[Rfam]
RNA sequence: CUGUAAGGGGAAUGAUGUAUUAUUAUCGAGCUCUCAAGAUGCUGGCCUAUCUCGAUUCUGCAUCAGAAAAGGACAUUGAAG
Numbered sequence: 001c002u003g004u005a006a007g008g009g010g011a012a013u014g015a016u017g018u019a020u021u022a023u024u025a026u027c028g029a030g031c032u033c034u035c036a037a038g039a040u041g042c043u044g045g046c047c048u049a050u051c052u053c054g055a056u057u058c059u060g061c062a063u064c065a066g067a068a069a070a071g072g073a074c075a076u077u078g079a080a081g
Stems, first nucleotide, its partner, number of pairs: 001081002004078003
Dot-bracket structure: ((.(((.....................................................................))).))